Shown here is a 164-nucleotide RNA from Eggerthia catenaformis, a member of the family "Lysine riboswitch aptamer". Rfam 15.1 lists 3,224 matches to the family in 1,923 species.
RNA sequence: AUAAAAGAUAAAGGCAGCGAUGCAUCAGAGUAUCUUAGGGAGAAGACAUUCUAUGAACUGAGAGAAAGGUAACCAUCGCCGAAAGAAAAUAAUGGUGAUUAUUUUCUUGGGGUCUAGGGAAAUACCCUAUUCACUCCUUCGUAAGAAGAGGCGUUAUCAUGGAA
Number, nucleotide and partner (000 for none) at each position: 001a000002u000003a000004a000005a000006a000007g158008a157009u156010a155011a154012a000013g000014g000015c000016a000017g079018c078019g077020a076021u075022g074023c000024a000025u071026c000027a000028g000029a000030g000031u000032a000033u063034c062035u061036u060037a059038g058039g000040g000041a000042g000043a000044a000045g000046a000047c000048a000049u000050u000051c000052u000053a000054u000055g000056a000057a000058c038059u037060g036061a035062g034063a033064g000065a000066a000067a000068g000069g000070u000071a025072a000073c000074c022075a021076u020077c019078g018079c017080c000081g000082a000083a108084a107085g106086a105087a104088a103089a102090u101091a100092a099093u098094g000095g000096u000097g000098a093099u092100u091101a090102u089103u088104u087105u086106c085107u084108u083109g135110g134111g000112g132113u000114c000115u129116a128117g127118g126119g125120a000121a000122a000123u000124a000125c119126c118127c117128u116129a115130u000131u000132c112133a000134c110135u109136c000137c148138u147139u146140c145141g000142u000143a000144a000145g140146a139147a138148g137149a000150g000151g000152c000153g000154u011155u010156a009157u008158c007159a000160u000161g000162g000163a000164a000
The family's consensus secondary structure is taken from published work. The match comes from Rfam's covariance-model search (65 bits). From the family's description: Riboswitches are metabolite binding domains within certain messenger RNAs that serve as precision sensors for their corresponding targets.